A member of the RNA family "transfer-messenger RNA" from Mycobacterium ulcerans, 368 nucleotides long.
Clan: tRNA clan.
From the family's description: Bacterial tmRNA, also known as 10Sa RNA or SsrA, is named for its dual tRNA and mRNA-like properties. Its role is to liberate the mRNA from a stalled ribosome.
Lineage of the source: Bacteria > Bacillati > Mycobacteriales > Mycobacterium > Mycobacterium ulcerans.

RNA sequence: GGGGCUGAACGGUUUCGACUUCGCGCAUCGAAUCAAGGGAAGCGUGCCGGUGCAGGCAAGAGACCACCGUAAGCGUCGAUGCAACUAGAUAAGCGCCGAUUCACAUCAGCGCGACUACGCUCUCGCUGCCUAAGCGACGGCUAGUCUGUCGGACCGGGAACGCCCUCGCCCCGGACCCCGGCAUCAGCUAGAGGGAUCAACCGAUGAGUUCGGUCGCGGGGCUCAUCGGGACAUCAACAGCGACUGGGAUCGUCAUCCUGGCUAGUUCGCGUGACCAGGAGAUCCGAGCAGAGACAUAGCGGACUGCGCACGGAGAAGCCUUGAGGGAAUGCCGUAGGACCCGGGUUCGAUUCCCGGCAGCUCCACAA
Numbered sequence: 001g002g003g004g005c006u007g008a009a010c011g012g013u014u015u016c017g018a019c020u021u022c023g024c025g026c027a028u029c030g031a032a033u034c035a036a037g038g039g040a041a042g043c044g045u046g047c048c049g050g051u052g053c054a055g056g057c058a059a060g061a062g063a064c065c066a067c068c069g070u071a072a073g074c075g076u077c078g079a080u081g082c083a084a085c086u087a088g089a090u091a092a093g094c095g096c097c098g099a100u101u102c103a104c105a106u107c108a109g110c111g112c113g114a115c116u117a118c119g120c121u122c123u124c125g126c127u128g129c130c131u132a133a134g135c136g137a138c139g140g141c142u143a144g145u146c147u148g149u150c151g152g153a154c155c156g157g158g159a160a161c162g163c164c165c166u167c168g169c170c171c172c173g174g175a176c177c178c179c180g181g182c183a184u185c186a187g188c189u190a191g192a193g194g195g196a197u198c199a200a201c202c203g204a205u206g207a208g209u210u211c212g213g214u215c216g217c218g219g220g221g222c223u224c225a226u227c228g229g230g231a232c233a234u235c236a237a238c239a240g241c242g243a244c245u246g247g248g249a250u251c252g253u254c255a256u257c258c259u260g261g262c263u264a265g266u267u268c269g270c271g272u273g274a275c276c277a278g279g280a281g282a283u284c285c286g287a288g289c290a291g292a293g294a295c296a297u298a299g300c301g302g303a304c305u306g307c308g309c310a311c312g313g314a315g316a317a318g319c320c321u322u323g324a325g326g327g328a329a330u331g332c333c334g335u336a337g338g339a340c341c342c343g344g345g346u347u348c349g350a351u352u353c354c355c356g357g358c359a360g361c362u363c364c365a366c367a368a
Stems, first nucleotide, its partner, number of pairs: 001364007019337002022334002025332004033324006043312005048069005056082003119141003123137004147183006154174004163195005201229009212245006247285005260276002265304004341357005